Shown here is a 236-nucleotide sequence from Artemisia annua, a member of the family "RNase MRP".
The family's RNA type in Rfam is ribozyme.
A reference for the family is Li et al. (2002), "Phylogenetic analysis of the structure of RNase MRP RNA in yeasts", RNA.
The family is grouped with related families in Rfam's "RNaseP clan".
[Rfam]
RNA sequence: AGGUUAAUGGACGGCAUGAAUGGGCUAAUUACUCACUUAGGUGGGUCAAAAGCCCAGGAAAUUCCCCGGGCCCAAAUCUGUAGAGAUACGGACUCUUAACUGAGAGCUGAGCUCUCACUAAUUGUAGGCUGAGACACGUGUGGAGCCUUUGAUCAUUUGGUGGAGUGAACUUGGCCGACUAAGUUAUUCAUGUGGUCAUUAGUGACUAACUUAACGGGGCUUACGAUUCAUUAACC
Numbered sequence: 001a002g003g004u005u006a007a008u009g010g011a012c013g014g015c016a017u018g019a020a021u022g023g024g025c026u027a028a029u030u031a032c033u034c035a036c037u038u039a040g041g042u043g044g045g046u047c048a049a050a051a052g053c054c055c056a057g058g059a060a061a062u063u064c065c066c067c068g069g070g071c072c073c074a075a076a077u078c079u080g081u082a083g084a085g086a087u088a089c090g091g092a093c094u095c096u097u098a099a100c101u102g103a104g105a106g107c108u109g110a111g112c113u114c115u116c117a118c119u120a121a122u123u124g125u126a127g128g129c130u131g132a133g134a135c136a137c138g139u140g141u142g143g144a145g146c147c148u149u150u151g152a153u154c155a156u157u158u159g160g161u162g163g164a165g166u167g168a169a170c171u172u173g174g175c176c177g178a179c180u181a182a183g184u185u186a187u188u189c190a191u192g193u194g195g196u197c198a199u200u201a202g203u204g205a206c207u208a209a210c211u212u213a214a215c216g217g218g219g220c221u222u223a224c225g226a227u228u229c230a231u232u233a234a235c236c
Stems, first nucleotide, its partner, number of pairs: 002236010014193006022055004031046006060222002064219004079090004091108001093106004110166001116162006123155002126148004136141001195206004
The family's consensus secondary structure is taken from published work.